[Rfam]
RNA sequence: CCUGAAUUUCAUAUGGCUUCUCGUAUAUGUGCAGGAAUAGGCCUGCAUGUCUCUACCCAGUCACCGGAAUGAUUGGACUACGGGAUCACGACUCUUCGUG
Dot-bracket structure: ..................(((((((...(((((((......)))))))........(((((((......)))))))..)))))))...............
A member of the RNA family "Purine riboswitch aptamer" from Paenibacillus pini, 100 nucleotides long. The base pairs follow the family's consensus structure, which is taken from published work. The organism belongs to Paenibacillus pini, within Bacteria.